[Rfam]
RNA sequence: AAUAUGGCGCUUUAAAUACACACACGUUUCGUCACAUGCGUUAGGGUCCCUUUGGGGUGACGUAUGGGAGACGUGGAGGCUUAAC
Numbered sequence: 001a002a003u004a005u006g007g008c009g010c011u012u013u014a015a016a017u018a019c020a021c022a023c024a025c026g027u028u029u030c031g032u033c034a035c036a037u038g039c040g041u042u043a044g045g046g047u048c049c050c051u052u053u054g055g056g057g058u059g060a061c062g063u064a065u066g067g068g069a070g071a072c073g074u075g076g077a078g079g080c081u082u083a084a085c
Stems, first nucleotide, its partner, number of pairs: 023075008035066009048057003
Dot-bracket structure: ......................((((((((....(((((((((....(((....)))))))))))).))))))))..........
The record is an 85-nucleotide RNA from Legionella waltersii, which matches "t44 RNA" in Rfam. Pairs were carried over by alignment from the consensus structure, which was predicted with LocARNA. For this family Rfam cites "Transcriptome analysis of Escherichia coli using high-density oligonucleotide probe arrays" (Tjaden et al., Nucleic Acids Res, 2002). Rfam describes the family as follows. This family consists of a number of bacterial RNA genes of between 135 and 170 bases in length.